[Rfam]
RNA sequence: UUUUUCGCUCAGGCGGAGCUGGACCGUCGACUCAAGUAAGACUUCUGUUCGUUCACGAGCAUCGAAGCCGUUUCGGGGUCGAGCCGAUCUGUGCCGUGUUGUCGGAGCACGGGGUGCAGAUCGCCCCG
Number, nucleotide and partner (000 for none) at each position: 001u000002u000003u000004u000005u000006c000007g000008c000009u000010c000011a000012g028013g027014c026015g025016g024017a000018g000019c000020u000021g000022g000023a000024c016025c015026g014027u013028c012029g000030a000031c000032u000033c000034a000035a000036g000037u000038a000039a000040g000041a000042c000043u000044u000045c000046u000047g000048u000049u000050c000051g000052u000053u000054c000055a000056c000057g000058a000059g000060c000061a000062u000063c000064g000065a000066a000067g000068c000069c000070g000071u000072u000073u000074c128075g127076g126077g125078g124079u000080c000081g000082a000083g000084c000085c123086g122087a000088u120089c119090u118091g117092u116093g115094c114095c000096g000097u000098g000099u000100u000101g000102u000103c000104g000105g000106a000107g000108c000109a000110c000111g000112g000113g000114g094115u093116g092117c091118a090119g089120a088121u000122c086123g085124c078125c077126c076127c075128g074
The record is a 128-nucleotide sequence from Pseudonocardia sulfidoxydans, which matches "ALIL pseudoknot" in Rfam. Rfam links the family to the GO term positive regulation of translational frameshifting. It scores 68 bits against the family's covariance model.